RNA sequence: CGCUAGUGAUGAUGACAAUAGUUGCUACUCUUGACCUAUCGAAACGAUAGAAUGACGAUAUAACUAUCCACUAAGAUCUCUGAGGCG
Numbered sequence: 001c002g003c004u005a006g007u008g009a010u011g012a013u014g015a016c017a018a019u020a021g022u023u024g025c026u027a028c029u030c031u032u033g034a035c036c037u038a039u040c041g042a043a044a045c046g047a048u049a050g051a052a053u054g055a056c057g058a059u060a061u062a063a064c065u066a067u068c069c070a071c072u073a074a075g076a077u078c079u080c081u082g083a084g085g086c087g
Stems, first nucleotide, its partner, number of pairs: 001087004
Shown here is an 87-nucleotide RNA from Rotaria sp. Silwood2, a member of the family "Small nucleolar RNA SNORD24". Rfam classes the family as a C/D-box small nucleolar RNA. For this family Rfam cites "U24, a novel intron-encoded small nucleolar RNA with two 12 nt long, phylogenetically conserved complementarities to 28S rRNA" (Qu et al., Nucleic Acids Res, 1995).